[Rfam]
RNA: msiK RNA
RNA sequence: CGCCACUUCCAUUCACAACGGAUCGUCCGGCACGUUCCUGCCGGUGAAGGAGAUGCAU
Numbered sequence: 001c002g003c004c005a006c007u008u009c010c011a012u013u014c015a016c017a018a019c020g021g022a023u024c025g026u027c028c029g030g031c032a033c034g035u036u037c038c039u040g041c042c043g044g045u046g047a048a049g050g051a052g053a054u055g056c057a058u
Stems, first nucleotide, its partner, number of pairs: 009050002012048004027044006
Dot-bracket structure: ........((.((((...........((((((......))))))))))))........